Shown here is a 118-nucleotide RNA sequence from Salasvirus PZA, a member of the family "3WJ core of Phi29 Bacteriophage pRNA".
About the family: During replication of linear dsDNA viruses, the viral genome is packaged into the pre-formed viral procapsid.
RNA sequence: AAUGGUACGGUACUUCCAUUGUCAUGUGUAUGAUGGGGAUUAAACCCUGAUUGAGUUCAGCCCACAUACUUUGUUGAUUGGUUGUCAAUCAUGGCAAAAGUGCACGCUACUUUGAUAA
Numbered sequence: 001a002a003u004g005g006u007a008c009g010g011u012a013c014u015u016c017c018a019u020u021g022u023c024a025u026g027u028g029u030a031u032g033a034u035g036g037g038g039a040u041u042a043a044a045c046c047c048u049g050a051u052u053g054a055g056u057u058c059a060g061c062c063c064a065c066a067u068a069c070u071u072u073g074u075u076g077a078u079u080g081g082u083u084g085u086c087a088a089u090c091a092u093g094g095c096a097a098a099a100g101u102g103c104a105c106g107c108u109a110c111u112u113u114g115a116u117a118a
Base pairs, nucleotide, nucleotide: 001113002112004111005110006109007108008106009105010103011102012101013100014099015098019097020096021095022094023093024092025091026090028069029068030067031066032065034064035063036062037061047060048059049058050057073089074088075087076086077085078084
It is annotated as a non-coding RNA gene. On this family, see Guo, Prog Nucleic Acid Res Mol Biol 2002: "Structure and function of phi29 hexameric RNA that drives the viral DNA packaging motor: review". Pairs were carried over by alignment from the consensus structure, which was predicted with ILM.